[Rfam]
RNA: Betaproteobacteria toxic small RNA
RNA sequence: UGUCUCCUCCACCUCCCUCAGGUGGAUUCAGCCCAAGGCAGCAAUGCCUUGGGCUUUUUUA
Numbered sequence: 001u002g003u004c005u006c007c008u009c010c011a012c013c014u015c016c017c018u019c020a021g022g023u024g025g026a027u028u029c030a031g032c033c034c035a036a037g038g039c040a041g042c043a044a045u046g047c048c049u050u051g052g053g054c055u056u057u058u059u060u061a
Stems, first nucleotide, its partner, number of pairs: 008026007031054008